Small nucleolar RNA snoR99: a 98-nucleotide sequence from Zea mays. On this family, see Marker et al., Curr Biol 2002: "Experimental RNomics: identification of 140 candidates for small non-messenger RNAs in the plant Arabidopsis thaliana". A search with the family's covariance model found it, with a score of 69 bits. NCBI's taxonomy places the organism under Eukaryota, Mesangiospermae, Petrosaviidae, Poales, Zea. Rfam classes the family as an H/ACA-box small nucleolar RNA.
[Rfam]
RNA sequence: GUGCUUGUGGGAUGAAAAUGUCCCUGACAUGUUCAACCAUUUAUUUACUUUGUCAGUUAAUAUUUUGUUUUCAGCUGAUCAUGAAGGAUGGGAAAUUU
Numbered sequence: 001g002u003g004c005u006u007g008u009g010g011g012a013u014g015a016a017a018a019u020g021u022c023c024c025u026g027a028c029a030u031g032u033u034c035a036a037c038c039a040u041u042u043a044u045u046u047a048c049u050u051u052g053u054c055a056g057u058u059a060a061u062a063u064u065u066u067g068u069u070u071u072c073a074g075c076u077g078a079u080c081a082u083g084a085a086g087g088a089u090g091g092g093a094a095a096u097u098u
Stems, first nucleotide, its partner, number of pairs: 037091005052079007